RNA sequence: UAAAAUGCGUUGAAGAGAAGAGUAACAGGAUAAGAACUAUACAGCGAAUCUUGCCAUGGUGAAAAAAGAUUAGGGAAUGUCCUGAGAAGAUGGUCUUGGAGCUACUUUUUUCGAUAUGGUAGAAAAAAGCGUAAAUGCUGCGUUACAGGCAGGAGCAUAGGUAUGCUUCAUGAGGUCACUGAAGAACAGUGAUGAAAUUAGGUGGUAACACGAUAAACUUUCGUCCUAAGG
Numbered sequence: 001u002a003a004a005a006u007g008c009g010u011u012g013a014a015g016a017g018a019a020g021a022g023u024a025a026c027a028g029g030a031u032a033a034g035a036a037c038u039a040u041a042c043a044g045c046g047a048a049u050c051u052u053g054c055c056a057u058g059g060u061g062a063a064a065a066a067a068g069a070u071u072a073g074g075g076a077a078u079g080u081c082c083u084g085a086g087a088a089g090a091u092g093g094u095c096u097u098g099g100a101g102c103u104a105c106u107u108u109u110u111u112c113g114a115u116a117u118g119g120u121a122g123a124a125a126a127a128a129g130c131g132u133a134a135a136u137g138c139u140g141c142g143u144u145a146c147a148g149g150c151a152g153g154a155g156c157a158u159a160g161g162u163a164u165g166c167u168u169c170a171u172g173a174g175g176u177c178a179c180u181g182a183a184g185a186a187c188a189g190u191g192a193u194g195a196a197a198u199u200a201g202g203u204g205g206u207a208a209c210a211c212g213a214u215a216a217a218c219u220u221u222c223g224u225c226c227u228a229a230g231g
Stems, first nucleotide, its partner, number of pairs: 007102002015097004026084005037073003048070005106128007130142003175193007199228004210224004
Dot-bracket structure: ......((......((((.......(((((......(((........(((((.............))))))))......))))).........))))...))...(((((((.........))))))).(((.......)))................................(((((((.....))))))).....((((.......((((.......))))))))...
A member of the RNA family "T-box leader" from Erysipelotrichaceae bacterium 5_2_54FAA, 231 nucleotides long.
The base pairs follow the family's consensus structure, which is taken from published work.
By type it is a cis-regulatory leader.
NCBI's taxonomy places the organism under Bacteria, Bacillati, Erysipelotrichia, Erysipelotrichales, Erysipelotrichaceae.
The match comes from Rfam's covariance-model search (109 bits).
Uncharged tRNA acts as the effector for transcription antitermination of genes in the T-box leader family.